[Rfam]
RNA sequence: GUAAAACAUUCAGGAGAGCGUGCCUGUCUGUAUUAAGUGGCACCACCGAAGGCGUAAACACCCUACAAUCGCUCAGGUAAAUGGGACUGAAAUGUUUGU
Numbered sequence: 001g002u003a004a005a006a007c008a009u010u011c012a013g014g015a016g017a018g019c020g021u022g023c024c025u026g027u028c029u030g031u032a033u034u035a036a037g038u039g040g041c042a043c044c045a046c047c048g049a050a051g052g053c054g055u056a057a058a059c060a061c062c063c064u065a066c067a068a069u070c071g072c073u074c075a076g077g078u079a080a081a082u083g084g085g086a087c088u089g090a091a092a093u094g095u096u097u098g099u
Base pairs, nucleotide, nucleotide: 009091010090011089012088013087020043021042022041023040045078046077047076048074049073052072053071054070
The family of this 99-nucleotide RNA sequence from Moraxella cuniculi is "Glycine riboswitch aptamer". The base pairs follow the family's consensus structure. The organism belongs to Moraxella cuniculi, within Bacteria.